Background:
This 433-nucleotide part of an RNA from Babesia ovis belongs to the Rfam family "Eukaryotic large subunit ribosomal RNA".
RNA sequence: GGUAGUAGCAACUAUUCAAACUGGAUCUUUGAAGGCCGAUGUGGAGCAGGGUUCCAUGUGAACAUUGCUUGGCCAUGGGUUAGCCGGUCCUAAGCGCCAGCUUGGUUGCGCGCGAGGCGGGCUCUGCCCCCUGCCGCGACAGGGUAUCGGGUCAAGAUUCCCGAGCCGGGCCGUGGAUACUGGGUGGCAACACAAGUGAACUUCCCUCCGCAUGCGCCUGCCCCGGGGAGCGUUUUCUUUGCUCCUUAACGCGUGUCCGCCCGUGGAAUCGCUUUGCGCGGCGAUACGGGUGCGCGCGCGGCAUAGCAGCUCGGCCUUCGGGCUGUCCGGUGCGCCGGCGACUGCCCUUGAAGCGGGAAGGGAACGCGUUAUUCGCACCCCCGUCCGUACCGAUUUCCGCAUCAGGUCUCCAAGGUUAGCAGCCUCUGGUCGA
Numbered sequence: 001g002g003u004a005g006u007a008g009c010a011a012c013u014a015u016u017c018a019a020a021c022u023g024g025a026u027c028u029u030u031g032a033a034g035g036c037c038g039a040u041g042u043g044g045a046g047c048a049g050g051g052u053u054c055c056a057u058g059u060g061a062a063c064a065u066u067g068c069u070u071g072g073c074c075a076u077g078g079g080u081u082a083g084c085c086g087g088u089c090c091u092a093a094g095c096g097c098c099a100g101c102u103u104g105g106u107u108g109c110g111c112g113c114g115a116g117g118c119g120g121g122c123u124c125u126g127c128c129c130c131c132u133g134c135c136g137c138g139a140c141a142g143g144g145u146a147u148c149g150g151g152u153c154a155a156g157a158u159u160c161c162c163g164a165g166c167c168g169g170g171c172c173g174u175g176g177a178u179a180c181u182g183g184g185u186g187g188c189a190a191c192a193c194a195a196g197u198g199a200a201c202u203u204c205c206c207u208c209c210g211c212a213u214g215c216g217c218c219u220g221c222c223c224c225g226g227g228g229a230g231c232g233u234u235u236u237c238u239u240u241g242c243u244c245c246u247u248a249a250c251g252c253g254u255g256u257c258c259g260c261c262c263g264u265g266g267a268a269u270c271g272c273u274u275u276g277c278g279c280g281g282c283g284a285u286a287c288g289g290g291u292g293c294g295c296g297c298g299c300g301g302c303a304u305a306g307c308a309g310c311u312c313g314g315c316c317u318u319c320g321g322g323c324u325g326u327c328c329g330g331u332g333c334g335c336c337g338g339c340g341a342c343u344g345c346c347c348u349u350g351a352a353g354c355g356g357g358a359a360g361g362g363a364a365c366g367c368g369u370u371a372u373u374c375g376c377a378c379c380c381c382c383g384u385c386c387g388u389a390c391c392g393a394u395u396u397c398c399g400c401a402u403c404a405g406g407u408c409u410c411c412a413a414g415g416u417u418a419g420c421a422g423c424c425u426c427u428g429g430u431c432g433a
Stems, first nucleotide, its partner, number of pairs: 015033006034431004043411004049391002054078005063071002085387003089143002094137002098110001100109002119130003147164005167383004173378003177373001184193003201360006210345003215340004220335002223330003226246006250300005260290006269281004307325007397406002413425004
Dot-bracket structure: ..............((((((.......))))))((((.....((((..((...(((((....((.....))..)))))......(((.((...((..(.((......)))........(((......))).....))....))...(((((........)))))..((((..(((.(......(((....))).......((((((...(((..((((.((.(((((((((.........))))))...(((((.....((((((...((((.....))))...)))))).....)))))......(((((((.....)))))))..)))...)).))))..))).........))))))............)..))).)))).)))..)).....((......)).)))).((((.....))))..))))..

The match comes from Rfam's covariance-model search (2898 bits). The source organism's lineage runs through Eukaryota, Sar, Alveolata, Aconoidasida and Babesia.